[Rfam]
RNA sequence: AUAAUAGUUCUGUGAAGUCAGGAUGGUGUGCAACUGGGAGAGAAACUCGCAGGGGGUGGCAUUCCCAUGU
Numbered sequence: 001a002u003a004a005u006a007g008u009u010c011u012g013u014g015a016a017g018u019c020a021g022g023a024u025g026g027u028g029u030g031c032a033a034c035u036g037g038g039a040g041a042g043a044a045a046c047u048c049g050c051a052g053g054g055g056g057u058g059g060c061a062u063u064c065c066c067a068u069g070u
Base pairs, nucleotide, nucleotide: 009067011032012031013030034052035051036050038048039047040046053066054065055064

A member of the RNA family "pemK RNA" from Chiloscyllium punctatum, 70 nucleotides long. The family's RNA type in Rfam is cis-regulatory element. NCBI's taxonomy places the organism under Eukaryota, Eumetazoa, Vertebrata, Galeoidea, Chiloscyllium.